The family of this 87-nucleotide RNA from Bacillus sp. V3-13 is "BsrC". A reference for the family is Saito et al. (2008), "Novel small RNA-encoding genes in the intergenic regions of Bacillus subtilis", Gene. The family's consensus secondary structure was predicted with CMfinder. The 301 nucleotide sequence from Kouji Nakamura has been trimmed to a highly conserved ~85 nucleotide long core to form this family.
RNA sequence: UUUAACCUAAACGACGAAAGCCCUGCCUCUCUUUCGUCCUUACGGCUCCGAAGCCGAUCCAGUGUGAAUAAGUUUUGCUAUAAAACA
Numbered sequence: 001u002u003u004a005a006c007c008u009a010a011a012c013g014a015c016g017a018a019a020g021c022c023c024u025g026c027c028u029c030u031c032u033u034u035c036g037u038c039c040u041u042a043c044g045g046c047u048c049c050g051a052a053g054c055c056g057a058u059c060c061a062g063u064g065u066g067a068a069u070a071a072g073u074u075u076u077g078c079u080a081u082a083a084a085a086c087a
Stems, first nucleotide, its partner, number of pairs: 034067003039062002043056005
Lineage of the source: Bacteria > Bacillati > Bacillota > Bacilli > Bacillus. By type it is a small RNA. It scores 82 bits against the family's covariance model.